[Rfam]
RNA sequence: GUGACAGAAGAGAGUGAGCACACAUGGUUUUUUUCUUGCAUGAAGGUCGUCCGUGCUCGAAGCUCUGUGUGCUCGCUCUCUAUCUGUCAC
Dot-bracket structure: ((((((((.((((((((((((.((.........................................)).))))))))))))..))))))))

A member of the RNA family "mir-156 microRNA precursor family" from Macleaya cordata, 90 nucleotides long. Lineage of the source: Eukaryota > Embryophyta > Magnoliopsida > Papaveroideae > Macleaya. About the family: This family represents the plant microRNA (miRNA) precursor mir-156. The literature on the family includes a 2002 paper in Genes Dev by Reinhart et al., "MicroRNAs in plants". It scores 82 bits against the family's covariance model.